[Rfam]
RNA: Small nucleolar RNA SNORD70
RNA sequence: UUGGCUGUUGUCAAUGAUGUAUUCUUGUUGAAGCUGAGUAGAUCUGAUUUGAUUCAACAUUUCGUCACUACCACUGAGACAACAGACAA
Number, nucleotide and partner (000 for none) at each position: 001u089002u088003g087004g000005c085006u084007g083008u082009u081010g080011u079012c078013a000014a000015u000016g000017a000018u000019g000020u000021a000022u000023u000024c000025u000026u000027g000028u000029u000030g000031a000032a000033g000034c000035u000036g000037a000038g000039u000040a000041g000042a000043u000044c000045u000046g000047a000048u000049u000050u000051g000052a000053u000054u000055c000056a000057a000058c000059a000060u000061u000062u000063c000064g000065u000066c000067a000068c000069u000070a000071c000072c000073a000074c000075u000076g000077a000078g012079a011080c010081a009082a008083c007084a006085g005086a000087c003088a002089a001